[Rfam]
RNA sequence: GGAUGUGAGGGUGAUCUGUCUGUGACCUCUGGCACCCCACCGAUUGCAAGGGUUGAUUUGACUGAUUUGGGUAGGUGGGCAGGUGACCCCUUUCUCCAUCAAUGUUCCUUGUGUGUCCCUCCCAAAGCUGUGUGCUCUGCCAAUGAGGACAACCUUCCUCAUAGAGAUGGUAUCAUUCAUUGGUCAAGUGUAUAUGGUAGCUGCACUCCCCUUCUAGAAACUCUGAACAAGCUCAAGGUCCAUUUGUGCAGGAAUGUAAGGUAGUCAAGCUUCCAAGACUGAAGACACAUCCGAGCGAGGAGCUACAUGCAGCAAUCUGCCAUUGCUU
Number, nucleotide and partner (000 for none) at each position: 001g108002g107003a106004u000005g000006u101007g100008a099009g000010g097011g096012u000013g093014a092015u000016c000017u000018g090019u000020c000021u000022g000023u000024g087025a000026c085027c000028u083029c082030u081031g080032g000033c078034a000035c074036c000037c070038c069039a068040c000041c000042g067043a066044u065045u064046g062047c000048a000049a000050g000051g000052g000053u000054u000055g000056a000057u000058u000059u000060g000061a000062c046063u000064g045065a044066u043067u042068u039069g038070g037071g000072u000073a000074g035075g000076u000077g000078g033079g000080c031081a030082g029083g028084u000085g026086a000087c024088c000089c000090c018091u000092u014093u013094c000095u000096c011097c010098a000099u008100c007101a006102a000103u000104g000105u000106u003107c002108c001109u000110u000111g000112u000113g000114u000115g000116u170117c169118c000119c166120u165121c164122c139123c000124a000125a136126a000127g135128c134129u000130g000131u000132g000133u000134g128135c127136u125137c000138u000139g122140c000141c000142a159143a000144u000145g000146a000147g157148g156149a155150c000151a000152a000153c000154c000155u149156u148157c147158c000159u142160c000161a000162u000163a000164g121165a120166g119167a000168u000169g117170g116171u000172a000173u000174c000175a000176u000177u000178c000179a000180u000181u000182g000183g000184u000185c000186a000187a000188g000189u000190g000191u000192a000193u000194a000195u000196g000197g000198u000199a000200g270201c269202u268203g000204c000205a000206c264207u263208c000209c261210c260211c000212u258213u000214c256215u000216a000217g000218a000219a000220a000221c252222u251223c000224u000225g000226a000227a247228c246229a245230a244231g243232c000233u000234c000235a000236a000237g000238g000239u000240c000241c000242a000243u231244u230245u229246g228247u227248g000249c000250a000251g222252g221253a000254a000255u000256g214257u000258a212259a000260g210261g209262u000263a207264g206265u000266c000267a000268a202269g201270c200271u000272u000273c000274c000275a000276a000277g000278a000279c000280u000281g000282a000283a000284g000285a000286c000287a000288c000289a000290u000291c000292c000293g328294a327295g326296c000297g323298a000299g321300g320301a000302g316303c000304u314305a000306c312307a000308u000309g000310c000311a000312g306313c000314a304315a000316u302317c000318u000319g000320c300321c299322a000323u297324u000325g000326c295327u294328u293
Description: 7SK RNA: a 328-nucleotide RNA from Neopipo cinnamomea. Lineage of the source: Eukaryota > Vertebrata > Gnathostomata > Sauria > Neopipo. The base pairs follow the family's consensus structure, which is taken from published work. By type it is a non-coding RNA gene. The match comes from Rfam's covariance-model search (185 bits). Rfam's curators write: 7SK was discovered as an abundant small nuclear RNA in the mid-70s but a possible function has only recently been suggested.